[Rfam]
RNA sequence: UAAUUUGUUUAGGGUAAAUUCUUAUUUAGUUAUGAUAGACACACACAUGACUACUUAGAAUCACUUGUUAUUACAAGUCUUUCUACAUCAUUGACAUUGAAAAAAAGAUAACAACUACAGUGUGAAUAAAUUUUUUUGAA
Numbered sequence: 001u002a003a004u005u006u007g008u009u010u011a012g013g014g015u016a017a018a019u020u021c022u023u024a025u026u027u028a029g030u031u032a033u034g035a036u037a038g039a040c041a042c043a044c045a046c047a048u049g050a051c052u053a054c055u056u057a058g059a060a061u062c063a064c065u066u067g068u069u070a071u072u073a074c075a076a077g078u079c080u081u082u083c084u085a086c087a088u089c090a091u092u093g094a095c096a097u098u099g100a101a102a103a104a105a106a107g108a109u110a111a112c113a114a115c116u117a118c119a120g121u122g123u124g125a126a127u128a129a130a131u132u133u134u135u136u137u138g139a140a
Stems, first nucleotide, its partner, number of pairs: 004140004012131001014127002018123002023119001025117001027114001029112003
The family of this 140-nucleotide RNA from Populus deltoides is "MIR480 microRNA precursor family". The source organism's lineage runs through Eukaryota, Gunneridae, fabids, Malpighiales and Populus. Gene Ontology terms of the family: RISC complex and miRNA-mediated post-transcriptional gene silencing.